[Rfam]
RNA sequence: UCACGUUACAGCUCUUUUAAAAUUUGUCUAGCAGGUUUUCUGGUCUUUACCAGAAAGCCCCU
Dot-bracket structure: .................................(((((((((((....)))))))))))...
Record summary
The record is a 62-nucleotide RNA from Chlorocebus sabaeus, which matches "U7 small nuclear RNA" in Rfam. The organism belongs to Chlorocebus, within Eukaryota. From the family's description: Animal histone pre-mRNAs are spliced by a different mechanism than nuclear pre-mRNAs and self-splicing introns. This processing involves the U7 snRNP, which contains only one RNA species: U7. The 5' end of U7 RNA is thought to base-pair to a conserved spacer element downstream of the cleavage site in histone pre-mRNA. This family contains a number of annotated U7 pseudogenes. The base pairs follow the family's consensus structure, which was predicted with PFOLD.